[Rfam]
RNA sequence: UGCACCAUGUUGGUCUGCAUCGGUCAUGCCAUGCUGUGAAACCUAACACAAUGUGACUGAUGCAGGGUGAUAUGAUGUGU
Numbered sequence: 001u002g003c004a005c006c007a008u009g010u011u012g013g014u015c016u017g018c019a020u021c022g023g024u025c026a027u028g029c030c031a032u033g034c035u036g037u038g039a040a041a042c043c044u045a046a047c048a049c050a051a052u053g054u055g056a057c058u059g060a061u062g063c064a065g066g067g068u069g070a071u072a073u074g075a076u077g078u079g080u
Stems, first nucleotide, its partner, number of pairs: 002080004006074007014066015032048002035045002
Dot-bracket structure: .(((((((((((.(((((((((((((((...((.((.......)).))...))))))))))))))).)))))))..))))

This 80-nucleotide RNA from Tyto alba belongs to the Rfam family "mir-1791 microRNA precursor family". The base pairs follow the family's consensus structure, which was predicted with RNAalifold. It scores 77 bits against the family's covariance model.